Source information
The record is a 66-nucleotide RNA sequence from Candidatus Termititenax aidoneus, which matches "DUF3800-VIII RNA" in Rfam. From the family's description: Bacteroidetes, Cyanobacteria, Firmicutes, Planctomycetes (1 example), Proteobacteria, Tenericutes (1 example).

[Rfam]
RNA sequence: UAAGCCCUGUGAUUACGAAGGCCUAGGUCCCUACUUGGGCGAUUGAUGUAGUAAUUAUGGGGCUCU
Numbered sequence: 001u002a003a004g005c006c007c008u009g010u011g012a013u014u015a016c017g018a019a020g021g022c023c024u025a026g027g028u029c030c031c032u033a034c035u036u037g038g039g040c041g042a043u044u045g046a047u048g049u050a051g052u053a054a055u056u057a058u059g060g061g062g063c064u065c066u
Base pairs, nucleotide, nucleotide: 003064004063005062006061007060008059009058010057011056012055013054014053015052016051021040022039023038024037025036026035027034028033